The family of this 283-nucleotide part of an RNA from Paraphoma chrysanthemicola is "Archaeal large subunit ribosomal RNA". Taxonomically the source falls in Paraphoma (Eukaryota, dothideomyceta, Pleosporomycetidae, Pleosporineae). The base pairs follow the family's consensus structure, which is taken from published work.
RNA sequence: AGAGUCUAACAUCUAUGCGAGUGUUUAGGUGUUAAGCCUAAACGCGUAAUAAAAGUGAAUGGAGGUAGGAACCCUUUAGGUGUACUAUUGACUAAUCCUAAUGUCUUUAGAUGGAUUUAAGUAAGAGUAUGGCUAUUAGGACCUGAAAGAUAGUAAACUAUGCUUAAAUAGAGUAAAGCUAGAGGAAACUCUAGUAGAGGCUUACAGCAGUUCUAACGUGCAAAUUAAUUAUUAAAUUUAGGCAUAGAGGCAAAAGACUAAUUAAACUAUCUAGUAGCUAGUU
Numbered sequence: 001a002g003a004g005u006c007u008a009a010c011a012u013c014u015a016u017g018c019g020a021g022u023g024u025u026u027a028g029g030u031g032u033u034a035a036g037c038c039u040a041a042a043c044g045c046g047u048a049a050u051a052a053a054a055g056u057g058a059a060u061g062g063a064g065g066u067a068g069g070a071a072c073c074c075u076u077u078a079g080g081u082g083u084a085c086u087a088u089u090g091a092c093u094a095a096u097c098c099u100a101a102u103g104u105c106u107u108u109a110g111a112u113g114g115a116u117u118u119a120a121g122u123a124a125g126a127g128u129a130u131g132g133c134u135a136u137u138a139g140g141a142c143c144u145g146a147a148a149g150a151u152a153g154u155a156a157a158c159u160a161u162g163c164u165u166a167a168a169u170a171g172a173g174u175a176a177a178g179c180u181a182g183a184g185g186a187a188a189c190u191c192u193a194g195u196a197g198a199g200g201c202u203u204a205c206a207g208c209a210g211u212u213c214u215a216a217c218g219u220g221c222a223a224a225u226u227a228a229u230u231a232u233u234a235a236a237u238u239u240a241g242g243c244a245u246a247g248a249g250g251c252a253a254a255a256g257a258c259u260a261a262u263u264a265a266a267c268u269a270u271c272u273a274g275u276a277g278c279u280a281g282u283u
Base pairs, nucleotide, nucleotide: 006139007138008137009136011134013132014131015130016129017128018127021045022044023043024042027039028038029037030036049056050055142281145278149271150270151269152268153267154266158247159246160245161244162243163242164241165240166239167238168237169235171203172202173201174200178195179194180193181192182191183190184189207232209230210229212228215226216225249259250258
The family has 91 seed sequences and 2,955 matches in Rfam 15.1.